[Rfam]
RNA sequence: GGCCGGGGACGACCCUGGCCGCCAGAACGAAAACGGCGGGAGGACCUGG
Numbered sequence: 001g002g003c004c005g006g007g008g009a010c011g012a013c014c015c016u017g018g019c020c021g022c023c024a025g026a027a028c029g030a031a032a033a034c035g036g037c038g039g040g041a042g043g044a045c046c047u048g049g
Stems, first nucleotide, its partner, number of pairs: 001020008037048004
Shown here is a 49-nucleotide RNA from Alkalilimnicola ehrlichii, a member of the family "Guanidine-II riboswitch aptamer (mini-ykkC)".
Pairs were carried over by alignment from the consensus structure, which is taken from published work.
Rfam's curators put it in the seed alignment.
NCBI's taxonomy places the organism under Bacteria, Pseudomonadati, Pseudomonadota, Alkalilimnicola, Alkalilimnicola ehrlichii.
Simpler in structure and has fewer highly conserved nucleotide positions than the ykkC-yxkD leader.
Rfam 15.1 lists 1,589 matches to the family in 1,229 species.